This 70-nucleotide sequence from Rousettus aegyptiacus belongs to the Rfam family "Small nucleolar RNA U2-30".
RNA sequence: CAGCGACGAUGGAAAGGUUUUACUACUGACUUCUGUAACUAUGAAGGUUUCUGCACUUGAUCUGAGCUCA
Numbered sequence: 001c002a003g004c005g006a007c008g009a010u011g012g013a014a015a016g017g018u019u020u021u022a023c024u025a026c027u028g029a030c031u032u033c034u035g036u037a038a039c040u041a042u043g044a045a046g047g048u049u050u051c052u053g054c055a056c057u058u059g060a061u062c063u064g065a066g067c068u069c070a
Stems, first nucleotide, its partner, number of pairs: 002068003013034001015032005
On this family, see Tycowski et al., Curr Biol 2004: "Guide RNAs with 5' Caps and Novel Box C/D snoRNA-like Domains for Modification of snRNAs in Metazoa".